This 46-nucleotide sequence from Pomatorhinus ruficollis belongs to the Rfam family "Histone 3' UTR stem-loop". Lineage of the source: Eukaryota > Gnathostomata > Theropoda > Neognathae > Pomatorhinus. About the family: The mRNAs of metazoan histone genes lack a poly-A tail. 3' end processing occurs at a site between a highly conserved stem-loop (modelled by this family) and a purine rich region around 20 nts downstream (the histone downstream element, or HDE). The stem-loop is bound by a 31 kDa stem-loop binding protein (SLBP - also termed the histone hairpin binding protein, or HBP). Together with U7 snRNA binding of the HDE, SLBP binding nucleate s the formation of the processing complex. The histone 3' UTR stem-loop is also involved in nucleocytoplasmic transport of the mRNA, and in stability regulation and translation efficiency in the cytoplasm. The base pairs follow the family's consensus structure, which is taken from published work.
[Rfam]
RNA sequence: CAAACGGCUCUUUUAAGAGCCACCACACGUUCCUAAUUGAGCUGUG
Numbered sequence: 001c002a003a004a005c006g007g008c009u010c011u012u013u014u015a016a017g018a019g020c021c022a023c024c025a026c027a028c029g030u031u032c033c034u035a036a037u038u039g040a041g042c043u044g045u046g
Stems, first nucleotide, its partner, number of pairs: 006021006